[Rfam]
RNA sequence: UCAUGGGUUCCUUCCCAUACGAUGACGAGUCAGGUCGGGCCCUAUCUUAGGUUUGGUCACCUAGGGGACGGGGAUAUGGAAAUCACUUUCGCUUGCUGUCAGUCUAGUGGAAACACUUAGCUUGCAAUGUGGGUGUAUGCCUGGAUAAGUCGUAUGGAUGCUGGCCAUGA
Numbered sequence: 001u002c003a004u005g006g007g008u009u010c011c012u013u014c015c016c017a018u019a020c021g022a023u024g025a026c027g028a029g030u031c032a033g034g035u036c037g038g039g040c041c042c043u044a045u046c047u048u049a050g051g052u053u054u055g056g057u058c059a060c061c062u063a064g065g066g067g068a069c070g071g072g073g074a075u076a077u078g079g080a081a082a083u084c085a086c087u088u089u090c091g092c093u094u095g096c097u098g099u100c101a102g103u104c105u106a107g108u109g110g111a112a113a114c115a116c117u118u119a120g121c122u123u124g125c126a127a128u129g130u131g132g133g134u135g136u137a138u139g140c141c142u143g144g145a146u147a148a149g150u151c152g153u154a155u156g157g158a159u160g161c162u163g164g165c166c167a168u169g170a
Stems, first nucleotide, its partner, number of pairs: 001170006010164002015157009026143002029141001031139001035079003040073004047064006084135004090131003094127001097126003101122002104120002107116003
RNA: Tombusvirus 3' cap-independent translation element
Organism: Tombusvirus cucumis